About this RNA:
Group II catalytic intron D1-D4-6: a 234-nucleotide sequence from Paenibacillus roseus. Group II introns are found in rRNA, tRNA and mRNA of organelles in fungi, plants and protists, and also in mRNA in bacteria. Taxonomically the source falls in Paenibacillus (Bacteria, Bacillati, Bacilli, Caryophanales). A search with the family's covariance model found it, with a score of 138 bits.
RNA sequence: GGAGUCCCAUCAGGAUAAAGCCUAACCAGCCAUCCUGUAGCUAGUUCUUGGAGGUUAUCCGGUAACGGAUAGCUUUAAGCGUAGAACGGCAAAGUAGCGGGCCGAAAGCAUGAGCUGAAGUGAUUGAGCCUCGAAAAAUUAGUCGAGAUUGGCCGAUGUAGUUACACAUACAGAAGGCGAAACUUGUCCAAGCGCAAUGGUGAGGUUGGACAGGCGCUCCGGGGUCUAAGAGCU
Number, nucleotide and partner (000 for none) at each position: 001g000002g000003a000004g000005u000006c000007c000008c000009a000010u000011c000012a036013g035014g034015a033016u000017a000018a000019a000020g030021c029022c000023u203024a000025a201026c200027c000028a000029g021030c020031c000032a000033u015034c014035c013036u012037g000038u092039a000040g090041c089042u000043a000044g087045u000046u085047c084048u083049u081050g080051g076052a075053g074054g073055u072056u071057a070058u069059c068060c067061g066062g000063u000064a000065a000066c061067g060068g059069a058070u057071a056072g055073c054074u053075u052076u051077a000078a000079g000080c050081g049082u000083a048084g047085a046086a000087c044088g000089g041090c040091a000092a038093a000094g000095u000096a000097g000098c000099g000100g000101g000102c000103c000104g000105a000106a000107a000108g000109c000110a000111u000112g000113a000114g000115c000116u000117g000118a000119a000120g000121u000122g000123a000124u000125u228126g226127a000128g225129c224130c223131u222132c221133g220134a000135a000136a000137a000138a000139u000140u000141a000142g000143u000144c000145g219146a218147g217148a000149u000150u216151g215152g178153c177154c176155g000156a000157u172158g171159u170160a169161g000162u000163u000164a000165c000166a000167c000168a000169u160170a159171c158172a157173g000174a000175a000176g154177g153178c152179g000180a000181a000182a000183c214184u213185u212186g211187u210188c209189c208190a207191a206192g000193c204194g000195c000196a000197a000198u000199g000200g026201u025202g000203a023204g193205g000206u191207u190208g189209g188210a187211c186212a185213g184214g183215c151216g150217c147218u146219c145220c133221g132222g131223g130224g129225u128226c126227u000228a125229a000230g000231a000232g000233c000234u000